[Rfam]
RNA sequence: GUAGAGGAGAUGGCGCAGGGGACACGAGCUAAAAUGGGGGGCUCCUGGGACCCCCCAACAUGUGUCCUCUUCUCCCUCCUCCCAG
Numbered sequence: 001g002u003a004g005a006g007g008a009g010a011u012g013g014c015g016c017a018g019g020g021g022a023c024a025c026g027a028g029c030u031a032a033a034a035u036g037g038g039g040g041g042c043u044c045c046u047g048g049g050a051c052c053c054c055c056c057a058a059c060a061u062g063u064g065u066c067c068u069c070u071u072c073u074c075c076c077u078c079c080u081c082c083c084a085g
Stems, first nucleotide, its partner, number of pairs: 004081006012075002015072001017070010028059001035057007042049002
Overview: This 85-nucleotide RNA sequence from Capra hircus belongs to the Rfam family "mir-877 microRNA precursor family". Taxonomically the source falls in Capra (Eukaryota, Chordata, Boreoeutheria, Pecora). Rfam links the family to the GO terms miRNA-mediated post-transcriptional gene silencing and RISC complex. It is one of the family's seed sequences. A reference for the family is Berezikov et al. (2006), "Many novel mammalian microRNA candidates identified by extensive cloning and RAKE analysis", Genome Res.